[Rfam]
RNA sequence: UGCUAUGAUGUUGUAAUUUGCGUCGUAUCCGGUGUUCAGGGACAGUUGCCUGCUGUCCACAUGCUGUCACCGAUGAGCUGAAGAUUCUCUAAAACUGAGCA
Numbered sequence: 001u002g003c004u005a006u007g008a009u010g011u012u013g014u015a016a017u018u019u020g021c022g023u024c025g026u027a028u029c030c031g032g033u034g035u036u037c038a039g040g041g042a043c044a045g046u047u048g049c050c051u052g053c054u055g056u057c058c059a060c061a062u063g064c065u066g067u068c069a070c071c072g073a074u075g076a077g078c079u080g081a082a083g084a085u086u087c088u089c090u091a092a093a094a095c096u097g098a099g100c101a
Stems, first nucleotide, its partner, number of pairs: 001101003021083001023081002030072005039064001041057005

This 101-nucleotide RNA sequence from Anolis carolinensis belongs to the Rfam family "Small nucleolar RNA SNORD16". The family's RNA type in Rfam is C/D-box small nucleolar RNA. The base pairs follow the family's consensus structure, which was predicted with PFOLD. On this family, see Fragapane et al., EMBO J 1993: "A novel small nucleolar RNA (U16) is encoded inside a ribosomal protein intron and originates by processing of the pre-mRNA". Its family is annotated with RNA processing and nucleolus in the Gene Ontology.